[Rfam]
RNA sequence: AGGUGGGUUUGAUUGGAGACAGGGACGAGGCAGUGCAUGGGAUGGGGCCAUCAACAAAAUUUCCAAUUUCCGUUUGCUUGCUCACAAAAUGAAGGUGCCUCCCUGGUGAUGGCCUGACCUGAGAGGGCUGAGAGCUCAGCUGGUGACCUGGUGUUGUUGCUUCCUCCCCUGCACUGCCUCUUCCCUGGCUCCCCACCGUUGCCCUUGC
Number, nucleotide and partner (000 for none) at each position: 001a000002g000003g000004u000005g000006g000007g000008u000009u000010u000011g000012a000013u000014u000015g000016g191017a190018g189019a000020c187021a186022g185023g184024g183025a182026c000027g000028a179029g178030g177031c176032a175033g174034u000035g172036c171037a170038u000039g168040g000041g167042a000043u000044g000045g163046g162047g000048c000049c000050a000051u000052c000053a000054a000055c000056a000057a000058a000059a000060u000061u000062u000063c000064c000065a000066a000067u000068u000069u000070c000071c000072g000073u000074u000075u000076g000077c000078u000079u000080g000081c000082u000083c000084a000085c000086a000087a000088a000089a000090u000091g000092a000093a000094g000095g000096u000097g000098c000099c000100u000101c000102c000103c000104u000105g000106g000107u000108g000109a000110u000111g000112g000113c000114c000115u000116g000117a000118c000119c000120u000121g000122a000123g000124a000125g000126g000127g000128c000129u000130g000131a000132g000133a000134g000135c000136u000137c000138a000139g000140c000141u000142g000143g000144u000145g000146a000147c000148c000149u000150g000151g000152u000153g000154u000155u000156g000157u000158u000159g000160c000161u000162u046163c045164c000165u000166c000167c041168c039169c000170u037171g036172c035173a000174c033175u032176g031177c030178c029179u028180c000181u000182u025183c024184c023185c022186u021187g020188g000189c018190u017191c016192c000193c000194c000195a000196c000197c000198g000199u000200u000201g000202c000203c000204c000205u000206u000207g000208c000
RNA: MIR408 microRNA precursor family
Organism: Miscanthus lutarioriparius